The family of this 114-nucleotide RNA sequence from Merluccius polli is "Potassium channel RNA editing signal". NCBI's taxonomy places the organism under Eukaryota, Gnathostomata, Osteoglossocephalai, Acanthomorphata, Merluccius.
RNA sequence: GUGGGCUACGGAGACAUGUGUCCGGUCACAAUGGGGGGUAAGAUGGUGGGCACGCUGUGCGCGAUCGCCGGCGUACUGACUAUUGCCUUGCCCGUCCCUGUGAUCGUCUCCAAC
Numbered sequence: 001g002u003g004g005g006c007u008a009c010g011g012a013g014a015c016a017u018g019u020g021u022c023c024g025g026u027c028a029c030a031a032u033g034g035g036g037g038g039u040a041a042g043a044u045g046g047u048g049g050g051c052a053c054g055c056u057g058u059g060c061g062c063g064a065u066c067g068c069c070g071g072c073g074u075a076c077u078g079a080c081u082a083u084u085g086c087c088u089u090g091c092c093c094g095u096c097c098c099u100g101u102g103a104u105c106g107u108c109u110c111c112a113a114c
Stems, first nucleotide, its partner, number of pairs: 001114002004111002008107004014101003018097001020095002037077004050062002